[Rfam]
A member of the RNA family "Streptococcus sRNA SSRC38" from Streptococcus pyogenes, 182 nucleotides long. For this family Rfam cites "Novel Regulatory Small RNAs in Streptococcus pyogenes" (Tesorero et al., PLoS One, 2013). By type it is a small RNA. The family's consensus secondary structure was predicted with CMfinder.
RNA sequence: UAGAGAGAACCAAUUUGGUUCUCUCUAUUUUUUUAUAUGUGCUGCCUCAUCAAAAAGAAGUUAGGACAAAUAGCUGUCAACAAUUGCCUUUUGCUUAUCUCUUCAGUUGCUGUGAUUUUAUCAUACAGUGAUAAAAGAUGGUAGUUGCCAUUGACAAAGCAUUGAUAAAGGAGUAAAAUUAA
Numbered sequence: 001u002a003g004a005g006a007g008a009a010c011c012a013a014u015u016u017g018g019u020u021c022u023c024u025c026u027a028u029u030u031u032u033u034u035a036u037a038u039g040u041g042c043u044g045c046c047u048c049a050u051c052a053a054a055a056a057g058a059a060g061u062u063a064g065g066a067c068a069a070a071u072a073g074c075u076g077u078c079a080a081c082a083a084u085u086g087c088c089u090u091u092u093g094c095u096u097a098u099c100u101c102u103u104c105a106g107u108u109g110c111u112g113u114g115a116u117u118u119u120a121u122c123a124u125a126c127a128g129u130g131a132u133a134a135a136a137g138a139u140g141g142u143a144g145u146u147g148c149c150a151u152u153g154a155c156a157a158a159g160c161a162u163u164g165a166u167a168a169a170g171g172a173g174u175a176a177a178a179u180u181a182a
Stems, first nucleotide, its partner, number of pairs: 002026010027174010039162005062097004067093004073087002104109001113156002137152006